Rfam assigns this 174-nucleotide sequence to the family "Group II catalytic intron D1-D4-3".
[Rfam]
Nucleotides: 174
Stems, first nucleotide, its partner, number of pairs: 001016006028174001030172002042159001044157001046156001047154005063149006074141003078137007086115004092108004
Number, partner (000 for none) and nucleotide at each position: 001016u002015c003014u004013g005012a006011g007000g008000c009000g010000a011006c012005u013004c014003a015002g016001a017000a018000u019000c020000u021000g022000a023000a024000g025000g026000a027000a028174g029000u030172u031171g032000a033000u034000g035000g036000c037000a038000a039000a040000a041000g042159g043000u044157u045000g046156g047154u048153u049152g050151c051150a052000a053000c054000g055000u056000a057000c058000a059000g060000a061000a062000a063149u064148a065147a066146g067145a068144u069000a070000g071000a072000a073000g074141g075140c076139u077000u078137u079136c080135a081134c082133u083132g084131a085000u086115g087114g088113g089112g090000a091000a092108u093107g094106u095105a096000g097000c098000a099000g100000c101000c102000g103000g104000a105095u106094a107093c108092a109000g110000a111000a112089u113088c114087c115086c116000a117000a118000u119000a120000u121000c122000c123000a124000g125000a126000c127000g128000u129000a130000a131084u132083u133082a134081g135080u136079g137078a138000g139076g140075g141074u142000a143000g144068a145067u146066c147065u148064u149063a150051u151050g152049u153048a154047a155000u156046c157044g158000c159042c160000g161000g162000g163000a164000a165000u166000a167000a168000u169000a170000g171031u172030g173000u174028c
It scores 103 bits against the family's covariance model.